[Rfam]
RNA sequence: AGAGCAUUUGUGAUGUGCUUCCUCUGUAUUCAUCCUUGCACUUUGAGCUAAGGUUUACCAGUGAAGGAAGCAUUGGGGAUAAUAUUCUGAGAUGCUC
Numbered sequence: 001a002g003a004g005c006a007u008u009u010g011u012g013a014u015g016u017g018c019u020u021c022c023u024c025u026g027u028a029u030u031c032a033u034c035c036u037u038g039c040a041c042u043u044u045g046a047g048c049u050a051a052g053g054u055u056u057a058c059c060a061g062u063g064a065a066g067g068a069a070g071c072a073u074u075g076g077g078g079a080u081a082a083u084a085u086u087c088u089g090a091g092a093u094g095c096u097c
Stems, first nucleotide, its partner, number of pairs: 002097007
Dot-bracket structure: .(((((((..................................................................................)))))))
Background
Small nucleolar RNA snoR26: a 97-nucleotide sequence from Aegilops tauschii. Its family is annotated with RNA processing and nucleolus in the Gene Ontology.